[Rfam]
RNA sequence: GCCCAGAUGAGCCUCAGUGGUCUGGGGUGCAGGCUUCAAACCUUAGCUGUCUGCGACAGAGUGGUUCAAUUCCCCCUCUGGGGC
Dot-bracket structure: ((((.(..(..((((((....))))))((.(((.......))))).(((((...))))).(.((.......)).))..).))))